The family of this 128-nucleotide RNA from Alligator sinensis is "U4 spliceosomal RNA". The base pairs follow the family's consensus structure, which is taken from published work. The family has 177 seed sequences and 32,178 matches in Rfam 15.1.

[Rfam]
RNA sequence: UGCUUUGCGCAGUGGCAGUAUCAUAGCCAAUGAGGCCCACCCGAGGCAUGAUUAUUGUUAGUUGAAAACUUUCCUUCUAUUUCUACUCUAGAAGUCAGUGAAACAUUUCUUGAAGGAAGCUGCUGUUG
Number, nucleotide and partner (000 for none) at each position: 001u000002g000003c000004u000005u000006u000007g000008c000009g000010c000011a000012g000013u000014g000015g000016c000017a000018g000019u000020a052021u051022c050023a049024u048025a000026g047027c046028c045029a000030a000031u000032g000033a000034g042035g041036c000037c000038c000039a000040c000041c035042c034043g000044a000045g028046g027047c026048a024049u023050g022051a021052u020053u000054a000055u000056u000057g000058u000059u000060a000061g000062u000063u000064g000065a000066a000067a000068a000069c000070u000071u000072u000073c000074c000075u000076u000077c000078u000079a000080u000081u000082u000083c000084u117085a000086c115087u113088c112089u000090a110091g109092a108093a107094g106095u105096c000097a000098g000099u000100g000101a000102a000103a000104c000105a095106u094107u093108u092109c091110u090111u000112g088113a087114a000115g086116g000117a084118a000119g000120c000121u000122g000123c000124u000125g000126u000127u000128g000
Source information:
Gene Ontology terms of the family: U4 snRNP and spliceosomal tri-snRNP complex assembly. The family's RNA type in Rfam is spliceosomal small nuclear RNA.